[Rfam]
RNA: Lysine riboswitch aptamer
Organism: Oscillibacter sp. PC13
RNA sequence: CGCUUAGAUAGAGGCGCGGCGUUCAUCAGUACCGUUCCGGCAAGGCCAGGCAACCGCCGGACGCGAAAGGGUUCUCCGCCGAAGUUCCGGAAAGAGCCUGCUUUUCGGGGCUGGGUCGUCAGGAAAUACCUGCCGGACUGUCACAAGACUUUGUGAAGCGCUAUCAAUGGC
Numbered sequence: 001c002g003c004u005u006a007g008a009u010a011g012a013g014g015c016g017c018g019g020c021g022u023u024c025a026u027c028a029g030u031a032c033c034g035u036u037c038c039g040g041c042a043a044g045g046c047c048a049g050g051c052a053a054c055c056g057c058c059g060g061a062c063g064c065g066a067a068a069g070g071g072u073u074c075u076c077c078g079c080c081g082a083a084g085u086u087c088c089g090g091a092a093a094g095a096g097c098c099u100g101c102u103u104u105u106c107g108g109g110g111c112u113g114g115g116u117c118g119u120c121a122g123g124a125a126a127u128a129c130c131u132g133c134c135g136g137a138c139u140g141u142c143a144c145a146a147g148a149c150u151u152u153g154u155g156a157a158g159c160g161c162u163a164u165c166a167a168u169g170g171c
Stems, first nucleotide, its partner, number of pairs: 007165005016079004021074001024071001033063005039057001083112012113139002116136003120132004141156006